The record is a 268-nucleotide RNA sequence from Pseudomonas fluorescens, which matches "rne-II RNA" in Rfam. Rfam classes the family as a cis-regulatory element. The family's consensus secondary structure is taken from published work. Taxonomically the source falls in Pseudomonas fluorescens (Bacteria, Pseudomonadati, Gammaproteobacteria, Pseudomonas). Rfam's curators put it in the seed alignment.
Nucleotides: 268
Base pairs, nucleotide, nucleotide: 014096015095016094017093023088024087025086026085027084028083030081031080032079036076037075038074040050041049042048058073059072060071061070097133098132099131100130101129136204137203138202141178142177143176144173145172146171147170151165152164153163154162182199183198184197186195187194188193211235212234213233214232215230216229217228218227246265247264248263249262250261251260252259
Number, partner (000 for none) and nucleotide at each position: 001000a002000u003000a004000c005000g006000u007000g008000u009000a010000g011000g012000g013000u014096g015095g016094a017093g018000a019000u020000g021000c022000a023088c024087a025086a026085c027084c028083g029000c030081u031080g032079g033000a034000c035000u036076g037075u038074g039000u040050a041049g042048c043000a044000a045000c046000a047000g048042g049041c050040u051000u052000u053000a054000u055000c056000a057000a058073g059072a060071c061070g062000c063000u064000u065000c066000a067000u068000c069000u070061c071060g072059u073058c074038c075037a076036c077000a078000g079032c080031c081030a082000c083028c084027g085026g086025u087024u088023g089000a090000u091000u092000c093017c094016u095015c096014c097133u098132c099131c100130u101129g102000a103000c104000u105000g106000a107000g108000u109000g110000c111000u112000u113000a114000a115000g116000u117000a118000g119000c120000c121000a122000c123000a124000g125000c126000a127000a128000g129101c130100a131099g132098g133097a134000c135000g136204c137203g138202u139000a140000c141178g142177u143176c144173g145172c146171g147170a148000u149000a150000a151165c152164g153163g154162c155000c156000c157000a158000a159000u160000u161000g162154g163153c164152c165151g166000g167000a168000c169000a170147u171146c172145g173144c174000u175000g176143g177142a178141c179000a180000c181000g182199g183198g184197a185000a186195u187194g188193g189000c190000c191000a192000a193188c194187c195186a196000c197184u198183c199182c200000c201000g202138a203137c204136g205000c206000a207000c208000c209000u210000g211235a212234c213233a214232c215230c216229g217228a218227c219000c220000g221000u222000g223000a224000g225000a226000a227218g228217u229216c230215g231000u232214g233213u234212g235211u236000g237000c238000c239000g240000a241000a242000c243000g244000c245000c246265g247264u248263u249262u250261c251260c252259g253000g254000c255000a256000g257000c258000c259252c260251g261250g262249a263248a264247a265246c266000c267000g268000a